[Rfam]
RNA sequence: GUACUCAGGUUUCCCUUCAAAACGUAUAAAUCUUUCGCCUUUUACUAAAGAUUUCCGUGGAGGGGAACACUCAAAUGAGUCUAAUUCUACUUUUUGAAGCCUCACCCUAGGAGAGGU
Numbered sequence: 001g002u003a004c005u006c007a008g009g010u011u012u013c014c015c016u017u018c019a020a021a022a023c024g025u026a027u028a029a030a031u032c033u034u035u036c037g038c039c040u041u042u043u044a045c046u047a048a049a050g051a052u053u054u055c056c057g058u059g060g061a062g063g064g065g066a067a068c069a070c071u072c073a074a075a076u077g078a079g080u081c082u083a084a085u086u087c088u089a090c091u092u093u094u095u096g097a098a099g100c101c102u103c104a105c106c107c108u109a110g111g112a113g114a115g116g117u
Stems, first nucleotide, its partner, number of pairs: 003080004009068011028054008098117001100116004105111001
The family of this 117-nucleotide RNA sequence from Danaus chrysippus is "U5 spliceosomal RNA". U5 RNA is a component of both types of known spliceosome. The precise function of this molecule is unknown, though it is known that the 5' loop is required for splice site selection and p220 binding, and that both the 3' stem-loop and the Sm site are important for Sm protein binding and cap methylation. Rfam classes the family as a spliceosomal small nuclear RNA. A search with the family's covariance model found it, with a score of 98 bits. A reference for the family is Zwieb (1997), "The uRNA database", Nucleic Acids Res. The source organism's lineage runs through Eukaryota, Pancrustacea, Lepidoptera, Neolepidoptera and Anosia.